[Rfam]
RNA sequence: GGUCUGUGAUGAGAAAUAGCCAAAUCUGAGCACCAGAAGAUAAAUAAUCUUCUGGGUGUCGUGAUUUGUAGGUAGUUCUGAGA
Numbered sequence: 001g002g003u004c005u006g007u008g009a010u011g012a013g014a015a016a017u018a019g020c021c022a023a024a025u026c027u028g029a030g031c032a033c034c035a036g037a038a039g040a041u042a043a044a045u046a047a048u049c050u051u052c053u054g055g056g057u058g059u060c061g062u063g064a065u066u067u068g069u070a071g072g073u074a075g076u077u078c079u080g081a082g083a
Stems, first nucleotide, its partner, number of pairs: 030059005038050004

Rfam assigns this 83-nucleotide RNA sequence from Chrysolophus pictus to the family "Small nucleolar RNA U2-19". By type it is a C/D-box small nucleolar RNA. A reference for the family is Tycowski et al. (2004), "Guide RNAs with 5' Caps and Novel Box C/D snoRNA-like Domains for Modification of snRNAs in Metazoa", Curr Biol. The organism belongs to Chrysolophus, within Eukaryota. Its family is annotated with RNA processing and nucleolus in the Gene Ontology. It scores 64 bits against the family's covariance model.